[Rfam]
RNA sequence: GUCCCAUUAAAGUCUGUAUUUACCUGCCCACACAAGGAGCCUAACUUCUAGGCUCGCACACAGGCAGGUGGGAAAUUCGGUGGUACGCUCUGUCCAAGCUAGGCGGGAGGACCUUUAAAAAAGUUCUCUGCCUAAAUCUCUUGAGAGGUUCCAGGCGUGGAAACGCUAGGGUGUUGCCAUAAGAAAUCAAACGCUUUCACGAGUGUUAUGGGAGGCUUCACGGGCAGUUGGUCCUUUACAACAAGGGGCUAUUGAGUGCAAUAUACAGACCGUGGGCCCUGUGCCCAUGGAACCCGAUACCGAUUAUUUUAGUGGGAC
Numbered sequence: 001g002u003c004c005c006a007u008u009a010a011a012g013u014c015u016g017u018a019u020u021u022a023c024c025u026g027c028c029c030a031c032a033c034a035a036g037g038a039g040c041c042u043a044a045c046u047u048c049u050a051g052g053c054u055c056g057c058a059c060a061c062a063g064g065c066a067g068g069u070g071g072g073a074a075a076u077u078c079g080g081u082g083g084u085a086c087g088c089u090c091u092g093u094c095c096a097a098g099c100u101a102g103g104c105g106g107g108a109g110g111a112c113c114u115u116u117a118a119a120a121a122a123g124u125u126c127u128c129u130g131c132c133u134a135a136a137u138c139u140c141u142u143g144a145g146a147g148g149u150u151c152c153a154g155g156c157g158u159g160g161a162a163a164c165g166c167u168a169g170g171g172u173g174u175u176g177c178c179a180u181a182a183g184a185a186a187u188c189a190a191a192c193g194c195u196u197u198c199a200c201g202a203g204u205g206u207u208a209u210g211g212g213a214g215g216c217u218u219c220a221c222g223g224g225c226a227g228u229u230g231g232u233c234c235u236u237u238a239c240a241a242c243a244a245g246g247g248g249c250u251a252u253u254g255a256g257u258g259c260a261a262u263a264u265a266c267a268g269a270c271c272g273u274g275g276g277c278c279c280u281g282u283g284c285c286c287a288u289g290g291a292a293c294c295c296g297a298u299a300c301c302g303a304u305u306a307u308u309u310u311a312g313u314g315g316g317a318c
Base pairs, nucleotide, nucleotide: 001318002317003316004315007312008311009310013268022069023068024067025066026065037055038054039053040052041051042050078302079301080300081299082298087225088224089223090222136149137148138147139146140145154167155166156165157164158163171221172220173219176216177215190207191206192205270290271289272288273287274286275285276284